[Rfam]
RNA: mir-71 microRNA precursor family
RNA sequence: GUUCCUUGAAAGACAUGGGUAGUGAGAUGUUAAAAAUUACUUGCCAUCUCACUACCUUGUCUUUGACGGAAAA
Numbered sequence: 001g002u003u004c005c006u007u008g009a010a011a012g013a014c015a016u017g018g019g020u021a022g023u024g025a026g027a028u029g030u031u032a033a034a035a036a037u038u039a040c041u042u043g044c045c046a047u048c049u050c051a052c053u054a055c056c057u058u059g060u061c062u063u064u065g066a067c068g069g070a071a072a073a
Stems, first nucleotide, its partner, number of pairs: 009064007017057003021053009
Dot-bracket structure: ........(((((((.(((.(((((((((...............))))))))).)))))))))).........